Small nucleolar RNA Z103: an 89-nucleotide sequence from Triticum urartu. Its family is annotated with nucleolus and RNA processing in the Gene Ontology. The family has 12 seed sequences and 2,844 matches in Rfam 15.1. By type it is a C/D-box small nucleolar RNA. NCBI's taxonomy places the organism under Eukaryota, Streptophytina, Embryophyta, Magnoliopsida, Triticum. A reference for the family is Chen et al. (2003), "The high diversity of snoRNAs in plants: identification and comparative study of 120 snoRNA genes from Oryza sativa", Nucleic Acids Res. It scores 64 bits against the family's covariance model.
RNA sequence: AUGGAAGUGAGGAUCCUAUCCUCAAAUGAUUGACUAUGAUUAUACUGCACGCACAUGUAAUCCUUUAUCAAGCCACAGGUCUGAUCGAU
Numbered sequence: 001a002u003g004g005a006a007g008u009g010a011g012g013a014u015c016c017u018a019u020c021c022u023c024a025a026a027u028g029a030u031u032g033a034c035u036a037u038g039a040u041u042a043u044a045c046u047g048c049a050c051g052c053a054c055a056u057g058u059a060a061u062c063c064u065u066u067a068u069c070a071a072g073c074c075a076c077a078g079g080u081c082u083g084a085u086c087g088a089u
Base pairs, nucleotide, nucleotide: 001089002088004086005085